[Rfam]
RNA sequence: UUUACCUAAACGAUGUAAGCCCUACCUCUCUUACAUCCUUACGGCUCCGAAGCCGAUCCAGUGUGAAUAAGUUUUUUACCAAAAAC
Numbered sequence: 001u002u003u004a005c006c007u008a009a010a011c012g013a014u015g016u017a018a019g020c021c022c023u024a025c026c027u028c029u030c031u032u033a034c035a036u037c038c039u040u041a042c043g044g045c046u047c048c049g050a051a052g053c054c055g056a057u058c059c060a061g062u063g064u065g066a067a068u069a070a071g072u073u074u075u076u077u078a079c080c081a082a083a084a085a086c
Stems, first nucleotide, its partner, number of pairs: 034065002038061002042055005

BsrC: an 86-nucleotide RNA from Metabacillus arenae. It is annotated as a small RNA. NCBI's taxonomy places the organism under Bacteria, Bacillati, Bacillota, Bacilli, Metabacillus. For this family Rfam cites "Novel small RNA-encoding genes in the intergenic regions of Bacillus subtilis" (Saito et al., Gene, 2008).